[Rfam]
RNA sequence: UGACGGGGGAGCACCACAACCGGUGGAGGCUGCGGUUUAAUUAGAUCAAACGCAGCGCACCCUACCAGAGCCGACAGCAGAAUGACGGUCAGCUUGAAGAGCUUACCUGACGCGCUGAGAGGAGCUGCAUGGCCGCCGUCAGCUCGUGCUGUGAAGUGUCCGGUUAAGUCCGGUAACGAGCGAGACCCGCAUCCAAUGUUGCCACGGAGCCGCUUGUCGGUUUCGGCACUCGUUGGAGACCGCUGGCGAUAAGUCAGAGGAAGGAGCGGGCCACGGUAGGUCAGUAUGGCCCGAAUGCUCUGGGAUACACGCGGCCUACAAUGGCCGGGACAAAGAGACGCGACCCCGAAAGGGGAAGCUAACCUCCUAAACCCGGUCUUAGUACGGAUCGAGGCCUGCAACUCGGCCUCGUGAAGGCGAAAUCGGUAGUAGUCGCUGAUCAUCAUUCAGCGGCGAAUAAGUCCCUGCUCCUUGUACACACUGCCUGUCAAGUCACCCGAGUCAGGUUCAGACGAGUCCCUCCAUUUGGAGGCGCAAGUCUGAGCUUGGCAAGGGGGGCUAAGUCAUAACAAGGUAGCCGUUGGGGAACCAGCGGCUGGA
Numbered sequence: 001u002g003a004c005g006g007g008g009g010a011g012c013a014c015c016a017c018a019a020c021c022g023g024u025g026g027a028g029g030c031u032g033c034g035g036u037u038u039a040a041u042u043a044g045a046u047c048a049a050a051c052g053c054a055g056c057g058c059a060c061c062c063u064a065c066c067a068g069a070g071c072c073g074a075c076a077g078c079a080g081a082a083u084g085a086c087g088g089u090c091a092g093c094u095u096g097a098a099g100a101g102c103u104u105a106c107c108u109g110a111c112g113c114g115c116u117g118a119g120a121g122g123a124g125c126u127g128c129a130u131g132g133c134c135g136c137c138g139u140c141a142g143c144u145c146g147u148g149c150u151g152u153g154a155a156g157u158g159u160c161c162g163g164u165u166a167a168g169u170c171c172g173g174u175a176a177c178g179a180g181c182g183a184g185a186c187c188c189g190c191a192u193c194c195a196a197u198g199u200u201g202c203c204a205c206g207g208a209g210c211c212g213c214u215u216g217u218c219g220g221u222u223u224c225g226g227c228a229c230u231c232g233u234u235g236g237a238g239a240c241c242g243c244u245g246g247c248g249a250u251a252a253g254u255c256a257g258a259g260g261a262a263g264g265a266g267c268g269g270g271c272c273a274c275g276g277u278a279g280g281u282c283a284g285u286a287u288g289g290c291c292c293g294a295a296u297g298c299u300c301u302g303g304g305a306u307a308c309a310c311g312c313g314g315c316c317u318a319c320a321a322u323g324g325c326c327g328g329g330a331c332a333a334a335g336a337g338a339c340g341c342g343a344c345c346c347c348g349a350a351a352g353g354g355g356a357a358g359c360u361a362a363c364c365u366c367c368u369a370a371a372c373c374c375g376g377u378c379u380u381a382g383u384a385c386g387g388a389u390c391g392a393g394g395c396c397u398g399c400a401a402c403u404c405g406g407c408c409u410c411g412u413g414a415a416g417g418c419g420a421a422a423u424c425g426g427u428a429g430u431a432g433u434c435g436c437u438g439a440u441c442a443u444c445a446u447u448c449a450g451c452g453g454c455g456a457a458u459a460a461g462u463c464c465c466u467g468c469u470c471c472u473u474g475u476a477c478a479c480a481c482u483g484c485c486u487g488u489c490a491a492g493u494c495a496c497c498c499g500a501g502u503c504a505g506g507u508u509c510a511g512a513c514g515a516g517u518c519c520c521u522c523c524a525u526u527u528g529g530a531g532g533c534g535c536a537a538g539u540c541u542g543a544g545c546u547u548g549g550c551a552a553g554g555g556g557g558g559c560u561a562a563g564u565c566a567u568a569a570c571a572a573g574g575u576a577g578c579c580g581u582u583g584g585g586g587a588a589c590c591a592g593c594g595g596c597u598g599g600a
Base pairs, nucleotide, nucleotide: 001478002477003475004474005473007472008471009470010469011468012467013466016462017461020426021425022424023423024422025319027317028316029315030314031313032312033311034310035308036307042055044053065303066302067301068300069299070298071297075117076116077115078114080111087107088106089105091103092102093101121292122291124290125289126288127287130286131285132281133280134279135277136276137275138274142181143180144179145178146177147176148157149156150155160173161172162171163170187269188268189267190266192237193236194235195234196233197232198231202226203225206224207223208222209221210220211219212218240260241259243257244256245255246254247253323378324377325376326375327374328373329372335366336365337364340359341358344355345354346353347352385416390411391410392409393408394407395406396405432454433453434452435451436450437449438448439447481573483570486566487565489563491560492559493558494557496555497554498553501550502549503548504547505546506545507544508543509542510541511540512539513538516535517534519532520531521530522529523528575598576597577596578595579594580593581592582591583590584589
Background: Archaeal small subunit ribosomal RNA: a 600-nucleotide part of an RNA from Candidatus Haloredivivus sp. G17. Rfam's curators put it in the seed alignment. Taxonomically the source falls in Candidatus Haloredivivus (Archaea, Methanobacteriati, Methanobacteriota, Candidatus Nanohaloarchaea). The family has 86 seed sequences and 709 matches in Rfam 15.1. The literature on the family includes a 2001 paper in Science by Yusupov et al., "Crystal structure of the ribosome at 5.5 A resolution".